[Rfam]
A member of the RNA family "MIR2670 microRNA precursor family" from Medicago truncatula, 198 nucleotides long. The match comes from Rfam's covariance-model search (161 bits).
RNA sequence: UUGAUCAAAGUGAGUAGCCGACUUGGGAGAAGUGAUCAACCCUUAGGAUAAGUUUUAAUCUGCUUUUUUUUUACUCCAUAAACUUUUUACCGUGGAUAAAAAGAUUCUUCUUGGGGUAUAAAAAAAACUAGAUUUAAAUUUAGCCCAAGGGUUGGUGAUGUAUUUUCCCCAAGAAGGCUGCUCACUAUUUUACCCCAA
Numbered sequence: 001u002u003g004a005u006c007a008a009a010g011u012g013a014g015u016a017g018c019c020g021a022c023u024u025g026g027g028a029g030a031a032g033u034g035a036u037c038a039a040c041c042c043u044u045a046g047g048a049u050a051a052g053u054u055u056u057a058a059u060c061u062g063c064u065u066u067u068u069u070u071u072u073a074c075u076c077c078a079u080a081a082a083c084u085u086u087u088u089a090c091c092g093u094g095g096a097u098a099a100a101a102a103g104a105u106u107c108u109u110c111u112u113g114g115g116g117u118a119u120a121a122a123a124a125a126a127a128c129u130a131g132a133u134u135u136a137a138a139u140u141u142a143g144c145c146c147a148a149g150g151g152u153u154g155g156u157g158a159u160g161u162a163u164u165u166u167c168c169c170c171a172a173g174a175a176g177g178c179u180g181c182u183c184a185c186u187a188u189u190u191u192a193c194c195c196c197a198a
Stems, first nucleotide, its partner, number of pairs: 003194001005192001007190002009186011022173006029167004035159004039152003043148002046145002049142004054137002057134006064127004069123003072118007083103007091095001

Its family is annotated with RISC complex and miRNA-mediated post-transcriptional gene silencing in the Gene Ontology.